[Rfam]
RNA sequence: GGGUUUGUAGCUCAGUGGAUUAGAGCUCAUGGUUCCGAAUCAUGAAGUCAAGGGUUCGAAUCCCUUCUAACCCU
Dot-bracket structure: (((((.(..((((.........)))).(((((.......))))).....(((((.......)))))).))))).
Numbered sequence: 001g002g003g004u005u006u007g008u009a010g011c012u013c014a015g016u017g018g019a020u021u022a023g024a025g026c027u028c029a030u031g032g033u034u035c036c037g038a039a040u041c042a043u044g045a046a047g048u049c050a051a052g053g054g055u056u057c058g059a060a061u062c063c064c065u066u067c068u069a070a071c072c073c074u
Stems, first nucleotide, its partner, number of pairs: 001073005007067001010026004028044005050066005

Shown here is a 74-nucleotide sequence, a member of the family "tRNA". Rfam's curators put it in the seed alignment. Transfer RNA (tRNA) molecules are approximately 80 nucleotides in length.